Rfam assigns this 273-nucleotide sequence from Sciurus vulgaris to the family "Mason-Pfizer monkey virus packaging signal". Rfam 15.1 lists 2,921 matches to the family in 53 species. Rfam's curators write: This family represents a group of sequences that are related to the Mason-Pfizer monkey virus (MPMV) packaging signal. The literature on the family includes a 1995 paper in J Virol by Harrison et al., "Secondary structure model of the Mason-Pfizer monkey virus 5' leader sequence: identification of a structural motif common to a variety of retroviruses". Lineage of the source: Eukaryota > Eumetazoa > Vertebrata > Sciurini > Sciurus. The match comes from Rfam's covariance-model search (154 bits).
RNA sequence: UGGCACCCAACGUGGUUGGAUAAGGGGGAAUUUGCAAGGGAAGAGGUGUUUAAUGGUUUGGCGGAACACAGCAGAAAUCAGUUCAAGAAGGAUCAUCGCGGGAGCCUGCCACGCCAUUCUUAAAGGUACAGUAGCGCCUAAGUAUGAGACAAGAAUUAAGUAAGCAUAAAGUUUUUGUUAAGCAAUUAAUAGAAGCUUUAAAGACACAGGGAGUAAAGGUUAUGAGUAAUGAUCUUUUUAAGUUUUUUGACCUUAUUAAGGAUACCUGUCUAU
Numbered sequence: 001u002g003g004c005a006c007c008c009a010a011c012g013u014g015g016u017u018g019g020a021u022a023a024g025g026g027g028g029a030a031u032u033u034g035c036a037a038g039g040g041a042a043g044a045g046g047u048g049u050u051u052a053a054u055g056g057u058u059u060g061g062c063g064g065a066a067c068a069c070a071g072c073a074g075a076a077a078u079c080a081g082u083u084c085a086a087g088a089a090g091g092a093u094c095a096u097c098g099c100g101g102g103a104g105c106c107u108g109c110c111a112c113g114c115c116a117u118u119c120u121u122a123a124a125g126g127u128a129c130a131g132u133a134g135c136g137c138c139u140a141a142g143u144a145u146g147a148g149a150c151a152a153g154a155a156u157u158a159a160g161u162a163a164g165c166a167u168a169a170a171g172u173u174u175u176u177g178u179u180a181a182g183c184a185a186u187u188a189a190u191a192g193a194a195g196c197u198u199u200a201a202a203g204a205c206a207c208a209g210g211g212a213g214u215a216a217a218g219g220u221u222a223u224g225a226g227u228a229a230u231g232a233u234c235u236u237u238u239u240a241a242g243u244u245u246u247u248u249g250a251c252c253u254u255a256u257u258a259a260g261g262a263u264a265c266c267u268g269u270c271u272a273u
Stems, first nucleotide, its partner, number of pairs: 006028003013022002033044001079125001091119001092117002097113002100110002132152001134150001137148001139146002157200003160196002207249008217235006258273001260271004